[Rfam]
RNA sequence: UGGGCAGUUCCAAAGUGCUCACAGUGCAGGUAGUUGUGACUGAUCUACUGCAGUGUUUGCACUUGUAGUACUGCCAG
Numbered sequence: 001u002g003g004g005c006a007g008u009u010c011c012a013a014a015g016u017g018c019u020c021a022c023a024g025u026g027c028a029g030g031u032a033g034u035u036g037u038g039a040c041u042g043a044u045c046u047a048c049u050g051c052a053g054u055g056u057u058u059g060c061a062c063u064u065g066u067a068g069u070a071c072u073g074c075c076a077g
Base pairs, nucleotide, nucleotide: 004074005073006072007071010068013064014063015062016061017060018059021056022055023054025052026051027050029049030048031047032046033045
Annotation
The family of this 77-nucleotide RNA from Anguilla anguilla is "mir-17 microRNA precursor family". Gene Ontology terms of the family: RISC complex and miRNA-mediated post-transcriptional gene silencing. The family's consensus secondary structure was predicted with RNAalifold. A search with the family's covariance model found it, with a score of 68 bits.